[Rfam]
RNA sequence: CUCAACGACUCACCGCUAAGUUCUAACGAACUAUAGCGGGAGCUUGCAAAAGCUCUAGUUGACCAGACUCAGUUCUACGGAACUACGUUACUUGGAUUAUGAAACCUACGAAUGCGUGCCAGUUCGUAGCUCUUUCGUACAGCUUUAAACAGGUGUAGCGAGUUAAGCCAGUGAGUUGUACCUAAAAAGUUCAAGUAACCUUGUCGAGGCAAACUUUAC
Number, nucleotide and partner (000 for none) at each position: 001c000002u062003c061004a060005a059006c058007g000008a056009c000010u041011c040012a000013c039014c038015g037016c036017u035018a034019a000020g000021u000022u000023c000024u000025a000026a000027c000028g000029a000030a000031c000032u000033a000034u018035a017036g016037c015038g014039g013040g011041a010042g053043c052044u051045u050046g000047c000048a000049a000050a045051a044052g043053c042054u000055c000056u008057a000058g006059u005060u004061g003062a002063c000064c000065a000066g205067a204068c203069u000070c000071a084072g083073u082074u081075c080076u000077a000078c000079g000080g075081a074082a073083c072084u071085a000086c000087g199088u198089u197090a196091c195092u194093u193094g192095g191096a190097u189098u000099a000100u000101g000102a135103a134104a000105c000106c129107u128108a127109c126110g125111a124112a123113u122114g215115c000116g000117u212118g210119c209120c208121a000122g113123u112124u111125c110126g109127u108128a107129g106130c000131u000132c000133u000134u103135u102136c000137g181138u180139a179140c178141a177142g176143c175144u174145u173146u000147a000148a000149a172150c171151a000152g169153g168154u167155g000156u165157a164158g163159c000160g000161a000162g000163u158164u157165a156166a000167g154168c153169c152170a000171g150172u149173g145174a144175g143176u142177u141178g140179u139180a138181c137182c000183u000184a000185a000186a000187a000188a000189g097190u096191u095192c094193a093194a092195g091196u090197a089198a088199c087200c000201u000202u000203g068204u067205c066206g000207a000208g120209g119210c118211a000212a117213a000214c000215u114216u000217u000218a000219c000
Notes
The family of this 219-nucleotide RNA sequence from Aerosakkonema funiforme is "HNH endonuclease-associated RNA and ORF (HEARO) RNA". NCBI's taxonomy places the organism under Bacteria, Cyanobacteriota, Oscillatoriophycideae, Aerosakkonema, Aerosakkonema funiforme. It scores 139 bits against the family's covariance model.